[Rfam]
RNA sequence: GUUCAGAACGUUUUAACUAAUAAACUGUUUGUCCCUCUCCGGCAAAGAACAAUUUGUUCAUUGACAGGGAGGGACAAAACAGUUUAUUAGUUAAAACGUUGUACG
Numbered sequence: 001g002u003u004c005a006g007a008a009c010g011u012u013u014u015a016a017c018u019a020a021u022a023a024a025c026u027g028u029u030u031g032u033c034c035c036u037c038u039c040c041g042g043c044a045a046a047g048a049a050c051a052a053u054u055u056g057u058u059c060a061u062u063g064a065c066a067g068g069g070a071g072g073g074a075c076a077a078a079a080c081a082g083u084u085u086a087u088u089a090g091u092u093a094a095a096a097c098g099u100u101g102u103a104c105g
Stems, first nucleotide, its partner, number of pairs: 001104002004101001011096018029067005048058004